A member of the RNA family "Alphaproteobacterial sRNA ar9" from Rhizobium leguminosarum, 145 nucleotides long. Lineage of the source: Bacteria > Alphaproteobacteria > Hyphomicrobiales > Rhizobium > Rhizobium leguminosarum bv. trifolii.

RNA sequence: ACAAAACAGGCAGGAAGGAUAAAUUCUUGCCGAAUUCGCGGUCAAGUCUUGGGAGGAUCAGAUCUUAGGCGCGCUCGUCGCUGCCCCGGCAACGGUUACAGAUCACGCGAUACUUAAAACAAGGCUUUUAGCCUUGUUUUUUUUU
Numbered sequence: 001a002c003a004a005a006a007c008a009g010g011c012a013g014g015a016a017g018g019a020u021a022a023a024u025u026c027u028u029g030c031c032g033a034a035u036u037c038g039c040g041g042u043c044a045a046g047u048c049u050u051g052g053g054a055g056g057a058u059c060a061g062a063u064c065u066u067a068g069g070c071g072c073g074c075u076c077g078u079c080g081c082u083g084c085c086c087c088g089g090c091a092a093c094g095g096u097u098a099c100a101g102a103u104c105a106c107g108c109g110a111u112a113c114u115u116a117a118a119a120c121a122a123g124g125c126u127u128u129u130a131g132c133c134u135u136g137u138u139u140u141u142u143u144u145u
Base pairs, nucleotide, nucleotide: 003145004144005143006142011029012028013027014026015025016024037109038108039107040106046058047057048056049055061104062103063102064101065100068085069084070083071081072080073079086095087094088093118138119137120136121135122134123133124132125131